[Rfam]
RNA: Mammalian CPEB3 ribozyme
RNA sequence: ACAAGUUUGAGGCCAUAGCAGAAGUGCACAUGGCACAGUUCUGUCAGAUUCCAGUGAAUCUGCUAAUUUGGCU
Dot-bracket structure: ........[[.[[...(((.((((((.......))).]]]]...(((((((....)))))))....))).)))